Annotation: Actinobacteria sRNA Ms_IGR-5: a 190-nucleotide RNA sequence from Streptomonospora litoralis. NCBI's taxonomy places the organism under Bacteria, Bacillati, Actinomycetota, Streptosporangiales, Streptomonospora. It scores 70 bits against the family's covariance model. Pairs were carried over by alignment from the consensus structure.
RNA sequence: ACGCAGGAAAGGAGGUGGUCCGAACAGUGAAGACGUUUGGGACUUGCGAGGUGUCCGCCCGCUAGGGCGAGACGAGGUAUCGGAUCGCGCUAGCGAAUCCACCGUGGACACCCAGAUCCCCGGGUCGCCGGAAGUUGUCCACCCGGCGCGGUCCCGCCGCUCGGCGGCGGAGGCCACCCCGGGGAUCCGU
Numbered sequence: 001a002c003g004c005a006g007g008a009a010a011g012g013a014g015g016u017g018g019u020c021c022g023a024a025c026a027g028u029g030a031a032g033a034c035g036u037u038u039g040g041g042a043c044u045u046g047c048g049a050g051g052u053g054u055c056c057g058c059c060c061g062c063u064a065g066g067g068c069g070a071g072a073c074g075a076g077g078u079a080u081c082g083g084a085u086c087g088c089g090c091u092a093g094c095g096a097a098u099c100c101a102c103c104g105u106g107g108a109c110a111c112c113c114a115g116a117u118c119c120c121c122g123g124g125u126c127g128c129c130g131g132a133a134g135u136u137g138u139c140c141a142c143c144c145g146g147c148g149c150g151g152u153c154c155c156g157c158c159g160c161u162c163g164g165c166g167g168c169g170g171a172g173g174c175c176a177c178c179c180c181g182g183g184g185a186u187c188c189g190u
Stems, first nucleotide, its partner, number of pairs: 014059005060095006067088004073082002113189001115187010127147005